Annotation: A member of the RNA family "MIR7504 microRNA precursor family" from Gossypium stocksii, 123 nucleotides long.
[Rfam]
RNA sequence: AAUAAGAGAAUGACAAAUCAUAUUUUUUUCCUGAUUUCCAACUUUUUCCUCCUAAAAAAAUUUUAAAUCCAACUAAAAACACUAAAAAUCAGGAAUAAAGGUUUAAUUUGUUAUUCUUUUAUU
Numbered sequence: 001a002a003u004a005a006g007a008g009a010a011u012g013a014c015a016a017a018u019c020a021u022a023u024u025u026u027u028u029u030c031c032u033g034a035u036u037u038c039c040a041a042c043u044u045u046u047u048c049c050u051c052c053u054a055a056a057a058a059a060a061u062u063u064u065a066a067a068u069c070c071a072a073c074u075a076a077a078a079a080c081a082c083u084a085a086a087a088a089u090c091a092g093g094a095a096u097a098a099a100g101g102u103u104u105a106a107u108u109u110g111u112u113a114u115u116c117u118u119u120u121a122u123u
Stems, first nucleotide, its partner, number of pairs: 001123018020104001022102006028095010040083001044079004